The record is a 101-nucleotide RNA from Rothia nasimurium, which matches "SAM (S-adenosyl methionine) riboswitch aptamer" in Rfam. NCBI's taxonomy places the organism under Bacteria, Actinomycetota, Actinomycetes, Micrococcaceae, Rothia.
RNA sequence: GAUCAUGAGUCCCAACGUUAAGCUCUGGCUGGUUGGGCGGCAACCCUCUCCCGUAGUGGGGUGCCCCAGAUGAGGAUCAGGCAGGAAUGCAAGUACGGCGC
Numbered sequence: 001g002a003u004c005a006u007g008a009g010u011c012c013c014a015a016c017g018u019u020a021a022g023c024u025c026u027g028g029c030u031g032g033u034u035g036g037g038c039g040g041c042a043a044c045c046c047u048c049u050c051c052c053g054u055a056g057u058g059g060g061g062u063g064c065c066c067c068a069g070a071u072g073a074g075g076a077u078c079a080g081g082c083a084g085g086a087a088u089g090c091a092a093g094u095a096c097g098g099c100g101c
Stems, first nucleotide, its partner, number of pairs: 001078004009038001011037006021030002039065003044061003048056002081090003